[Rfam]
RNA sequence: AAAGCUGGUCAGACAAUCGCUCUUUGCUGUAGCGCAAGGGGAGGAAAGUCCGGGCUCCACAGGGCAGAGUGCCAGGUAACGCCUGGGAGAUGAAAAUCUACGGAAAGUGCCACAGAAAAUAUACCGCCGAUUAGGGUAACCUUGUUGGUAAGGGUGAAAUGGUGCGGUAAGAGCGCACCGCACGAUUGGUAACAGUCGUGGCAGGGAAAACCCCACUUGGAGCAAGACCAAAUAGGGAUCCAUAUGGCUUAGGCCAUAACGCAUGGCCCAUGCGGGAUUCGGGUAGGUCGCUUGAGGCAAACGGUGACGUUUGUCCCAGAUGAAUGAUUGUCCACGACAGAACCCGGCUUAUCGACCAGCUUUUACC
Dot-bracket structure: ((((((((((((((((((.((((((((......))))))))....[[[.[[[[[((((...[[[[.((((((((((.....)))))(((((....)))).)((...((.((............((((((((.((......)).))))))..)).......((((((.......))))))(((((((((....)))))))).)..))...)))))))))))))...((((......((((((..................(((((.]]]]))))))))))).....))))......((((((((....))))))))..........)))))))..........]]]]]]]].).))))))))))....
Shown here is a 367-nucleotide RNA from Legionella impletisoli, a member of the family "Bacterial RNase P class A". By type it is a ribozyme. Rfam's curators write: Ribonuclease P (RNase P) is a ubiquitous endoribonuclease, found in archaea, bacteria and eukarya as well as chloroplasts and mitochondria. Its best characterised activity is the generation of mature 5'-ends of tRNAs by cleaving the 5'-leader elements of precursor-tRNAs.